Shown here is a 210-nucleotide RNA from Erwinia sp. Leaf53, a member of the family "GcvB RNA".
Rfam classes the family as a non-coding RNA gene.
The gcvB gene encodes a small untranslated RNA involved in expression of the dipeptide and oligopeptide transport systems in Escherichia coli. Included several unknown homologues in alignment (Bateman A pers obs).
The organism belongs to Erwinia, within Bacteria.
A reference for the family is Sharma et al. (2007), "A small RNA regulates multiple ABC transporter mRNAs by targeting C/A-rich elements inside and upstream of ribosome-binding sites", Genes Dev.
[Rfam]
RNA sequence: ACUUCCUGAGCCGGAACGAAAAGUUUUUGAGGAUUGGGUAUUAACGUACUGAAUCUUUGGCACUUUUGGCUUGUGGGCGUGAUGUUGUGUUUGCAAUUGACCUGACGAUUUUCGGGUCCGGUGGCGUAAGCGACCUUUUAUUCCUGUAGAUUUACCCUGUCUGUCCAUAGUAAAUUCUUAGUAGCACCGCUUUUUGCGGUGCUUUUUUUU
Numbered sequence: 001a002c003u004u005c006c007u008g009a010g011c012c013g014g015a016a017c018g019a020a021a022a023g024u025u026u027u028u029g030a031g032g033a034u035u036g037g038g039u040a041u042u043a044a045c046g047u048a049c050u051g052a053a054u055c056u057u058u059g060g061c062a063c064u065u066u067u068g069g070c071u072u073g074u075g076g077g078c079g080u081g082a083u084g085u086u087g088u089g090u091u092u093g094c095a096a097u098u099g100a101c102c103u104g105a106c107g108a109u110u111u112u113c114g115g116g117u118c119c120g121g122u123g124g125c126g127u128a129a130g131c132g133a134c135c136u137u138u139u140a141u142u143c144c145u146g147u148a149g150a151u152u153u154a155c156c157c158u159g160u161c162u163g164u165c166c167a168u169a170g171u172a173a174a175u176u177c178u179u180a181g182u183a184g185c186a187c188c189g190c191u192u193u194u195u196g197c198g199g200u201g202c203u204u205u206u207u208u209u210u
Stems, first nucleotide, its partner, number of pairs: 009071004015067002021065004026060001028059008099118007120135003124131002150179001183203008
Dot-bracket structure: ........((((..((....((((.(.((((((((................))))))))).))))))))))...........................(((((((......))))))).(((.((....)).)))..............(............................)...((((((((.....)))))))).......